Source information: The family of this 90-nucleotide RNA from Sakesphorus luctuosus is "Small nucleolar RNA SNORD70". The family has 21 seed sequences and 1,085 matches in Rfam 15.1. Taxonomically the source falls in Sakesphorus (Eukaryota, Craniata, Tetrapoda, Telluraves).

[Rfam]
RNA sequence: CAGACUGUUGUCUAUGAUGAAACAUAUAGUUAAUCUGAAAUCAAUGAUGUGAUUCAGUUCUUUCGUCACUACCACUGAGACAACAGAUGG
Numbered sequence: 001c002a003g004a005c006u007g008u009u010g011u012c013u014a015u016g017a018u019g020a021a022a023c024a025u026a027u028a029g030u031u032a033a034u035c036u037g038a039a040a041u042c043a044a045u046g047a048u049g050u051g052a053u054u055c056a057g058u059u060c061u062u063u064c065g066u067c068a069c070u071a072c073c074a075c076u077g078a079g080a081c082a083a084c085a086g087a088u089g090g
Base pairs, nucleotide, nucleotide: 001090003088005086006085007084008083009082010081011080012079
Its family is annotated with nucleolus and RNA processing in the Gene Ontology. Pairs were carried over by alignment from the consensus structure. A search with the family's covariance model found it, with a score of 61 bits. Rfam's curators write: snoRNA HBII-234 belongs to the C/D family of snoRNAs. It is the human orthologue of the mouse MBII-234 and is predicted to guide 2'O-ribose methylation of the small 18S rRNA on position A512. It is hosted, together with HBII-95, by the core C/D box snoRNA protein encoding gene NOP5/NOP58.